[Rfam]
RNA sequence: UUGGGUGAAAUGCUCGCUAAAGGGGCUACUACCGAGGAAAUUCAAUUCCUGCUCACGCCCCUGGGAAGGUCUGAGACAAAGGUCACUGCCUAUCCUAGAUGGAUACCCUUAUAACUAUAGGGGUGGAUCACUAGAAACAGGCUCGGCGAAUUGCAAAUGGCAGAUGAAUCCCUCCUAUUUCAGGAGGGAGAAUGCCAGCAAUUGCGUCAAAGUUGGAAAGGUUCCACGACCAGCAUAGUAAGUUCAAUCAGCGAGGUGACGCCUUCAUAGGUGUUAUAACUCAAUUCAGACUACUCUUUGUCCAA
Numbered sequence: 001u002u003g004g005g006u007g008a009a010a011u012g013c014u015c016g017c018u019a020a021a022g023g024g025g026c027u028a029c030u031a032c033c034g035a036g037g038a039a040a041u042u043c044a045a046u047u048c049c050u051g052c053u054c055a056c057g058c059c060c061c062u063g064g065g066a067a068g069g070u071c072u073g074a075g076a077c078a079a080a081g082g083u084c085a086c087u088g089c090c091u092a093u094c095c096u097a098g099a100u101g102g103a104u105a106c107c108c109u110u111a112u113a114a115c116u117a118u119a120g121g122g123g124u125g126g127a128u129c130a131c132u133a134g135a136a137a138c139a140g141g142c143u144c145g146g147c148g149a150a151u152u153g154c155a156a157a158u159g160g161c162a163g164a165u166g167a168a169u170c171c172c173u174c175c176u177a178u179u180u181c182a183g184g185a186g187g188g189a190g191a192a193u194g195c196c197a198g199c200a201a202u203u204g205c206g207u208c209a210a211a212g213u214u215g216g217a218a219a220g221g222u223u224c225c226a227c228g229a230c231c232a233g234c235a236u237a238g239u240a241a242g243u244u245c246a247a248u249c250a251g252c253g254a255g256g257u258g259a260c261g262c263c264u265u266c267a268u269a270g271g272u273g274u275u276a277u278a279a280c281u282c283a284a285u286u287c288a289g290a291c292u293a294c295u296c297u298u299u300g301u302c303c304a305a
Stems, first nucleotide, its partner, number of pairs: 001305004008299003013255006021062005035050005071289005081231004091105005106122004123227005129221001142212002256277007
Shown here is a 305-nucleotide sequence from Pocillopora damicornis, a member of the family "Nuclear RNase P". The source organism's lineage runs through Eukaryota, Metazoa, Cnidaria, Pocilloporidae and Pocillopora. The family's RNA type in Rfam is ribozyme. It scores 152 bits against the family's covariance model.